A member of the RNA family "Guanidine-II riboswitch aptamer (mini-ykkC)" from Candidatus Methylopumilus turicensis, 45 nucleotides long. From the family's description: Simpler in structure and has fewer highly conserved nucleotide positions than the ykkC-yxkD leader. The base pairs follow the family's consensus structure, which is taken from published work. A search with the family's covariance model found it, with a score of 35 bits. Taxonomically the source falls in Candidatus Methylopumilus (Bacteria, Betaproteobacteria, Nitrosomonadales, Methylophilaceae).

[Rfam]
RNA sequence: UCAGCAGGACGACCUGUUGAUCAAUCUAAUAACCGAGACGACUCG
Numbered sequence: 001u002c003a004g005c006a007g008g009a010c011g012a013c014c015u016g017u018u019g020a021u022c023a024a025u026c027u028a029a030u031a032a033c034c035g036a037g038a039c040g041a042c043u044c045g
Stems, first nucleotide, its partner, number of pairs: 001020008034045004